The family of this 147-nucleotide RNA from Dictyostelium discoideum is "Dictyostelium snoRNA DdR18". The literature on the family includes a 2004 paper in Nucleic Acids Res by Aspegren et al., "Novel non-coding RNAs in Dictyostelium discoideum and their expression during development". Its family is annotated with nucleolus and RNA processing in the Gene Ontology. Rfam's curators put it in the seed alignment. The family's RNA type in Rfam is H/ACA-box small nucleolar RNA.
RNA sequence: ACUCAACAGCCUGCCUCCGUUUUGUGUUUGGUUCUUUUAUACCAAAUAAACAAGUUUUAUGGCAAGAAGCUCAUAAUAAACAUACAUGUGCCUUUAAUCAAUCUGUAAUCUGUUCUAUUACACGAUUUUCAUGCAGUCACAACAACU
Number, nucleotide and partner (000 for none) at each position: 001a000002c000003u000004c000005a000006a000007c000008a071009g070010c069011c000012u064013g063014c062015c061016u000017c000018c000019g000020u000021u054022u053023u052024g051025u050026g047027u046028u045029u044030g043031g042032u041033u000034c000035u000036u000037u000038u000039a000040u000041a032042c031043c030044a029045a028046a027047u026048a000049a000050a025051c024052a023053a022054g021055u000056u000057u000058u000059a000060u000061g015062g014063c013064a012065a000066g000067a000068a000069g010070c009071u008072c000073a000074u000075a000076a000077u000078a000079a000080a000081c000082a000083u000084a000085c000086a000087u141088g140089u139090g138091c000092c136093u135094u000095u133096a132097a000098u000099c000100a127101a126102u125103c124104u122105g121106u120107a119108a118109u117110c000111u000112g000113u000114u000115c000116u000117a109118u108119u107120a106121c105122a104123c000124g103125a102126u101127u100128u000129u000130c000131a000132u096133g095134c000135a093136g092137u000138c090139a089140c088141a087142a000143c000144a000145a000146c000147u000